Rfam assigns this 124-nucleotide sequence from Oncorhynchus kisutch to the family "Small nucleolar RNA SNORA26". A search with the family's covariance model found it, with a score of 54 bits. NCBI's taxonomy places the organism under Eukaryota, Bilateria, Gnathostomata, Neopterygii, Oncorhynchus. By type it is an H/ACA-box small nucleolar RNA. The snoRNA HBI-6 belong to the H/ACA family of snoRNAs, guiding the pseudouridylation of position U4522 if the 28S rRNA. HBI-6 is the human orthologue of mouse MBI-6 snoRNA.
RNA sequence: UUGCCCAUCUAAGACUUGAAGUGUCCUAUAUGAUCAACACAGAGGGGUAGAGGAUGAUAGUUCUCUCAUAAACCUGUAGUGAAGGCUGAACACCUCACUGCGGAUCCUGUCGGGAGAUACAAUG
Numbered sequence: 001u002u003g004c005c006c007a008u009c010u011a012a013g014a015c016u017u018g019a020a021g022u023g024u025c026c027u028a029u030a031u032g033a034u035c036a037a038c039a040c041a042g043a044g045g046g047g048u049a050g051a052g053g054a055u056g057a058u059a060g061u062u063c064u065c066u067c068a069u070a071a072a073c074c075u076g077u078a079g080u081g082a083a084g085g086c087u088g089a090a091c092a093c094c095u096c097a098c099u100g101c102g103g104a105u106c107c108u109g110u111c112g113g114g115a116g117a118u119a120c121a122a123u124g
Stems, first nucleotide, its partner, number of pairs: 002049005008043003016036001017033001063116005074103007082095001084093001087092001